[Rfam]
RNA: tRNA
Organism: Candidatus Moduliflexus flocculans
RNA sequence: CGGGGCGUAGCGCAGUCUGGUCUAGCGUACCGGCAUGGGGUGCCAGUGGUCGGAGGUUCGAAUCCUCUCGCCCCGA
Numbered sequence: 001c002g003g004g005g006c007g008u009a010g011c012g013c014a015g016u017c018u019g020g021u022c023u024a025g026c027g028u029a030c031c032g033g034c035a036u037g038g039g040g041u042g043c044c045a046g047u048g049g050u051c052g053g054a055g056g057u058u059c060g061a062a063u064c065c066u067c068u069c070g071c072c073c074c075g076a
Stems, first nucleotide, its partner, number of pairs: 001075007010028004030046001032044003052068005